[Rfam]
RNA sequence: UGCCGGUCCGUCCAUAGGCCGGCGACACUAAAGAGGCACUACUCUUGCCGGGCGCGUGGAGCGGGCCUUCCCACUCUCGCAAAGGCGUCUGAAACCGACCGAAGGACGCGGAUUCCGCGUCCCUUCCUGCGUCGCUUCAGCGCCGGAUACGGCUC
Numbered sequence: 001u002g003c004c005g006g007u008c009c010g011u012c013c014a015u016a017g018g019c020c021g022g023c024g025a026c027a028c029u030a031a032a033g034a035g036g037c038a039c040u041a042c043u044c045u046u047g048c049c050g051g052g053c054g055c056g057u058g059g060a061g062c063g064g065g066c067c068u069u070c071c072c073a074c075u076c077u078c079g080c081a082a083a084g085g086c087g088u089c090u091g092a093a094a095c096c097g098a099c100c101g102a103a104g105g106a107c108g109c110g111g112a113u114u115c116c117g118c119g120u121c122c123c124u125u126c127c128u129g130c131g132u133c134g135c136u137u138c139a140g141c142g143c144c145g146g147a148u149a150c151g152g153c154u155c
Stems, first nucleotide, its partner, number of pairs: 001024006008018002035049004056143003080091002101126005
RNA: speF leader
Organism: Blastochloris tepida